Shown here is an 84-nucleotide sequence from Esox lucius, a member of the family "Small nucleolar RNA snR60/Z15/Z230/Z193/J17". Rfam links the family to the GO terms nucleolus and RNA processing.
RNA sequence: UUCAUACAGUGAUGACCACAUAGUUCAGCAGAUUUACCGUGAAGAAUUAUCAGCUUUGUCUUUUGCUCCUAACUGAUGUAGCUG
Number, nucleotide and partner (000 for none) at each position: 001u000002u000003c000004a000005u080006a079007c078008a077009g000010u000011g000012a000013u000014g000015a000016c000017c000018a000019c000020a000021u000022a000023g000024u000025u000026c000027a000028g000029c000030a000031g000032a000033u000034u000035u000036a000037c000038c000039g000040u000041g000042a000043a000044g000045a000046a000047u000048u000049a000050u000051c000052a000053g000054c000055u000056u000057u000058g000059u000060c000061u000062u000063u000064u000065g000066c000067u000068c000069c000070u000071a000072a000073c000074u000075g000076a000077u008078g007079u006080a005081g000082c000083u000084g000

Notes
By type it is a C/D-box small nucleolar RNA.